[Rfam]
RNA sequence: ACCGCAUACUUACCUACUAUAUAGUAAUCGAAAUAAAUGUAUUUCGAUACUAUAUAGUAGGUAAGUAUGCAGUUU
Number, nucleotide and partner (000 for none) at each position: 001a073002c072003c000004g070005c069006a068007u067008a066009c065010u064011u063012a062013c061014c060015u059016a000017c057018u056019a055020u054021a053022u052023a051024g050025u049026a048027a000028u000029c046030g045031a044032a000033a042034u041035a040036a000037a000038u000039g000040u035041a034042u033043u000044u031045c030046g029047a000048u026049a025050c024051u023052a022053u021054a020055u019056a018057g017058u000059a015060g014061g013062u012063a011064a010065g009066u008067a007068u006069g005070c004071a000072g002073u001074u000075u000
RNA: mir-7563 microRNA precursor family
Organism: Ameiurus melas